Overview: mir-9256 microRNA precursor family: a 67-nucleotide RNA sequence from Pipistrellus kuhlii. A search with the family's covariance model found it, with a score of 80 bits.
[Rfam]
RNA sequence: GUACACAUUGAGUGGCCAGAUUAUUAUGUUCUCUGAACGCAUAAUGAUCUGGCCACUCAGUGUCUUU
Numbered sequence: 001g002u003a004c005a006c007a008u009u010g011a012g013u014g015g016c017c018a019g020a021u022u023a024u025u026a027u028g029u030u031c032u033c034u035g036a037a038c039g040c041a042u043a044a045u046g047a048u049c050u051g052g053c054c055a056c057u058c059a060g061u062g063u064c065u066u067u
Stems, first nucleotide, its partner, number of pairs: 005063013019049010
Dot-bracket structure: ....(((((((((((((.((((((((((...........)))))))))).)))))))))))))....